[Rfam]
The family of this 54-nucleotide RNA from Salmo salar is "UnaL2 LINE 3' element".
Rfam links the family to the GO term transposition, RNA-mediated.
The base pairs follow the family's consensus structure, which is taken from published work.
The literature on the family includes a 2004 paper in RNA by Baba et al., "Solution structure of an RNA stem-loop derived from the 3' conserved region of eel LINE UnaL2".
RNA sequence: UCUAAUUGUUGCUGUAAGUCGCUCUGGAUAAGAGCAUCUGCUAAAAGCCUAAAA
Dot-bracket structure: ............((((....(((((.....)))))...))).)...........